[Rfam]
RNA sequence: AGUCAUGUCCCGGGGACGGUGAAACUCCGUACCGGCGGUGAGAGUCCGCGACCCAGCCCGGAAGGGCUGGCUGAUCCGGUGAAAUUCCGGAACCGACAGUAAGAGUCUGGAUGGGAGGAACAUGAUG
Number, nucleotide and partner (000 for none) at each position: 001a000002g000003u125004c124005a123006u122007g121008u120009c118010c117011c000012g000013g000014g000015g000016a000017c029018g028019g027020u000021g000022a000023a000024a000025c000026u000027c019028c018029g017030u000031a106032c105033c095034g094035g049036c048037g047038g046039u000040g000041a000042g000043a000044g093045u092046c038047c037048g036049c035050g000051a000052c000053c070054c069055a000056g000057c000058c000059c000060g000061g000062a000063a000064g000065g000066g000067c000068u000069g054070g053071c000072u000073g000074a000075u091076c090077c089078g088079g087080u000081g000082a000083a000084a000085u000086u000087c079088c078089g077090g076091a075092a045093c044094c034095g033096a000097c109098a108099g107100u000101a000102a000103g000104a000105g032106u031107c099108u098109g097110g000111a000112u000113g000114g000115g000116a000117g010118g009119a000120a008121c007122a006123u005124g004125a003126u000127g000
RNA: FMN riboswitch aptamer (RFN element)
Organism: Actinobaculum sp. 352